Rfam assigns this 144-nucleotide RNA from Terribacillus sp. AE2B 122 to the family "c-di-AMP riboswitch aptamer (ydaO/yuaA leader)".
RNA sequence: AAUUCGUAAUCGCUUAAUUCCUGAUUCAGGAAGCGGGGGAACCAACCGUAACUAUUGUUACAUGGGGUGAAUCUCUGAAAAGAGUAGGGCUACUCUCUGGCCCGAAUCCGUCAGCUAACUUCGUAAGCGUUCGAGAGGAAGCCA
Numbered sequence: 001a002a003u004u005c006g007u008a009a010u011c012g013c014u015u016a017a018u019u020c021c022u023g024a025u026u027c028a029g030g031a032a033g034c035g036g037g038g039g040a041a042c043c044a045a046c047c048g049u050a051a052c053u054a055u056u057g058u059u060a061c062a063u064g065g066g067g068u069g070a071a072u073c074u075c076u077g078a079a080a081a082g083a084g085u086a087g088g089g090c091u092a093c094u095c096u097c098u099g100g101c102c103c104g105a106a107u108c109c110g111u112c113a114g115c116u117a118a119c120u121u122c123g124u125a126a127g128c129g130u131u132c133g134a135g136a137g138g139a140a141g142c143c144a
Base pairs, nucleotide, nucleotide: 011129012128013127014126018032019031020030021029022028033124034123035122036121037120038119043064044063065109066108067107073084074083075082076081087103088102089101090100
A search with the family's covariance model found it, with a score of 103 bits.